[Rfam]
RNA sequence: UUCUUCCUGUUCAAGCAUUCUGCUGUAACUGCAUUUCUUGGAUUUGUUCUAGGUCUUGCAGUGAUGCCAGCAGAGUAACUACAGGAAGUAGAAUAUAUGCACUGGUUUUUGGGAUGCUGAUGAACCUCUUUCUGAAUGUUCAGUAUCUUCUGUCCCAGAGAUUUAGUGCUACAGAU
Numbered sequence: 001u002u003c004u005u006c007c008u009g010u011u012c013a014a015g016c017a018u019u020c021u022g023c024u025g026u027a028a029c030u031g032c033a034u035u036u037c038u039u040g041g042a043u044u045u046g047u048u049c050u051a052g053g054u055c056u057u058g059c060a061g062u063g064a065u066g067c068c069a070g071c072a073g074a075g076u077a078a079c080u081a082c083a084g085g086a087a088g089u090a091g092a093a094u095a096u097a098u099g100c101a102c103u104g105g106u107u108u109u110u111g112g113g114a115u116g117c118u119g120a121u122g123a124a125c126c127u128c129u130u131u132c133u134g135a136a137u138g139u140u141c142a143g144u145a146u147c148u149u150c151u152g153u154c155c156c157a158g159a160g161a162u163u164u165a166g167u168g169c170u171a172c173a174g175a176u
Base pairs, nucleotide, nucleotide: 018075019074021072022071023070024069025068028065030063031062037053038052039051040050041049042048099169100168101167102166103165104164105163119144121142122141123140124139